[Rfam]
RNA sequence: GGCACGAGUAGAAGCGGUCUGGACCCGGUCCUGGACAUUGCUCGCCAG
Numbered sequence: 001g002g003c004a005c006g007a008g009u010a011g012a013a014g015c016g017g018u019c020u021g022g023a024c025c026c027g028g029u030c031c032u033g034g035a036c037a038u039u040g041c042u043c044g045c046c047a048g
Base pairs, nucleotide, nucleotide: 005044006043007042008041009040010039015033018035019034021031022030023029024028